[Rfam]
RNA: Glycine riboswitch aptamer
RNA sequence: UGAACCCGUGCGGGAGAGACCCGGGCCUGACUCGGGCGCCGUAGGAGCAACUCUCCCCAAGAAUCUCUCAGGCACCUUCACCGUACGGGCGAG
Numbered sequence: 001u002g003a004a005c006c007c008g009u010g011c012g013g014g015a016g017a018g019a020c021c022c023g024g025g026c027c028u029g030a031c032u033c034g035g036g037c038g039c040c041g042u043a044g045g046a047g048c049a050a051c052u053c054u055c056c057c058c059a060a061g062a063a064u065c066u067c068u069c070a071g072g073c074a075c076c077u078u079c080a081c082c083g084u085a086c087g088g089g090c091g092a093g
Stems, first nucleotide, its partner, number of pairs: 006088008020036004038073003041069001045067003051061002